[Rfam]
RNA sequence: AGACCUCAGAUCAGACGUGGCAACCCACUGAAUUUAAGCAUAUUACUAAGCGGAGGAAAAGAAACUAACCAGGAUUCCCUCAGUAAUGGCGAGUGAAGAGGGAAGAGCCCAGCGCCGAAACCCCGCCCGCCCGGCAGCCACGGGAAAUGUGGCGUACGGUAGACCGGAUCCACCCCGGUGUCGCUCGGGGGCCCGAGUACUUCUGAUCGAGGCCCAGCCUGCGGAUGGUGUUAGGCCGGUAGCGGCCCCACGGCGCGGCGGGACCUGGUUCUCCCCGGAGUUGGGUUGCUUGGAAAUGCAGCCCAAAGCGGGUGGUAAACUCCAUCUAAGGCUAAAUACCGUCGCGAGACCGAUAGCAGACAUGUACCGUAAGGGAAAGUUGAAAAGAACUUUGAAGAGAGAGUUCAAGAGGGCGUGAAACCGCUAAGAGGUAAA
Numbered sequence: 001a002g003a004c005c006u007c008a009g010a011u012c013a014g015a016c017g018u019g020g021c022a023a024c025c026c027a028c029u030g031a032a033u034u035u036a037a038g039c040a041u042a043u044u045a046c047u048a049a050g051c052g053g054a055g056g057a058a059a060a061g062a063a064a065c066u067a068a069c070c071a072g073g074a075u076u077c078c079c080u081c082a083g084u085a086a087u088g089g090c091g092a093g094u095g096a097a098g099a100g101g102g103a104a105g106a107g108c109c110c111a112g113c114g115c116c117g118a119a120a121c122c123c124c125g126c127c128c129g130c131c132c133g134g135c136a137g138c139c140a141c142g143g144g145a146a147a148u149g150u151g152g153c154g155u156a157c158g159g160u161a162g163a164c165c166g167g168a169u170c171c172a173c174c175c176c177g178g179u180g181u182c183g184c185u186c187g188g189g190g191g192c193c194c195g196a197g198u199a200c201u202u203c204u205g206a207u208c209g210a211g212g213c214c215c216a217g218c219c220u221g222c223g224g225a226u227g228g229u230g231u232u233a234g235g236c237c238g239g240u241a242g243c244g245g246c247c248c249c250a251c252g253g254c255g256c257g258g259c260g261g262g263a264c265c266u267g268g269u270u271c272u273c274c275c276c277g278g279a280g281u282u283g284g285g286u287u288g289c290u291u292g293g294a295a296a297u298g299c300a301g302c303c304c305a306a307a308g309c310g311g312g313u314g315g316u317a318a319a320c321u322c323c324a325u326c327u328a329a330g331g332c333u334a335a336a337u338a339c340c341g342u343c344g345c346g347a348g349a350c351c352g353a354u355a356g357c358a359g360a361c362a363u364g365u366a367c368c369g370u371a372a373g374g375g376a377a378a379g380u381u382g383a384a385a386a387g388a389a390c391u392u393u394g395a396a397g398a399g400a401g402a403g404u405u406c407a408a409g410a411g412g413g414c415g416u417g418a419a420a421c422c423g424c425u426a427a428g429a430g431g432u433a434a435a
Stems, first nucleotide, its partner, number of pairs: 024055001025053002028050002035042002065072002076103005086094002106333004113154005119148001121144003125139001127137001159274001162270001164268004180259005186253001188249006197213001200211003220224001227237002283304007310327005367374002390401004

About this RNA:
Shown here is a 435-nucleotide part of an RNA from Eleutherodactylus coqui, a member of the family "Eukaryotic large subunit ribosomal RNA". Taxonomically the source falls in Eleutherodactylus (Eukaryota, Bilateria, Dipnotetrapodomorpha, Eleutherodactylidae). Pairs were carried over by alignment from the consensus structure, which is taken from published work. A search with the family's covariance model found it, with a score of 2432 bits.